The family of this 92-nucleotide RNA sequence from Pongo pygmaeus is "mir-515 microRNA precursor family". Taxonomically the source falls in Pongo (Eukaryota, Craniata, Amniota, Eutheria). Rfam 15.1 lists 1,056 matches to the family in 27 species. On this family, see Bentwich et al., Nat Genet 2005: "Identification of hundreds of conserved and nonconserved human microRNAs".
RNA sequence: UCUCAGGCUGUGACCUUCUCGAGGAAAGAAGCACUUUCUGUUGUCUGAAAGAAAAGAAAGUGCUUCCUUUCAGGAGAGUUGACGGUUUGGAG
Numbered sequence: 001u002c003u004c005a006g007g008c009u010g011u012g013a014c015c016u017u018c019u020c021g022a023g024g025a026a027a028g029a030a031g032c033a034c035u036u037u038c039u040g041u042u043g044u045c046u047g048a049a050a051g052a053a054a055a056g057a058a059a060g061u062g063c064u065u066c067c068u069u070u071c072a073g074g075a076g077a078g079u080u081g082a083c084g085g086u087u088u089g090g091a092g
Stems, first nucleotide, its partner, number of pairs: 001092001003090003007086005012080003016076003021070004028066011041055002